[Rfam]
Nucleotides: 061
Base pairs, nucleotide, nucleotide: 002013003012004011027053028052029051030050033047034046035045036044037043
Number, partner (000 for none) and nucleotide at each position: 001000u002013g003012g004011u005000a006000g007000a008000u009000g010000c011004a012003c013002c014000c015000u016000g017000a018000u019000a020000a021000u022000u023000c024000a025000c026000u027053c028052c029051c030050c031000u032000c033047u034046u035045a036044g037043a038000a039000a040000u041000u042000u043037u044036c045035u046034a047033g048000u049000u050030g051029g052028g053027g054000a055000u056000u057000u058000u059000u060000u061000u
Notes:
Shown here is a 61-nucleotide RNA sequence from Brunnivagina elsteri, a member of the family "Nitrogen stress-induced RNA 1". By type it is a small RNA. NCBI's taxonomy places the organism under Bacteria, Bacillati, Cyanobacteriota, Calotrichaceae, Brunnivagina elsteri. The match comes from Rfam's covariance-model search (50 bits).